The family of this 61-nucleotide RNA from Paenibacillus sp. JDR-2 is "Fluoride riboswitch aptamer (crcB RNA motif)". Pairs were carried over by alignment from the consensus structure, which is taken from published work.

[Rfam]
RNA sequence: AGUGAAUAAGGCGAUGGAGUUCGCCAUUAACCGCCUGCGGGCUAAUGACUCCUACCAAUGU
Numbered sequence: 001a002g003u004g005a006a007u008a009a010g011g012c013g014a015u016g017g018a019g020u021u022c023g024c025c026a027u028u029a030a031c032c033g034c035c036u037g038c039g040g041g042c043u044a045a046u047g048a049c050u051c052c053u054a055c056c057a058a059u060g061u
Stems, first nucleotide, its partner, number of pairs: 010025004016052006033042003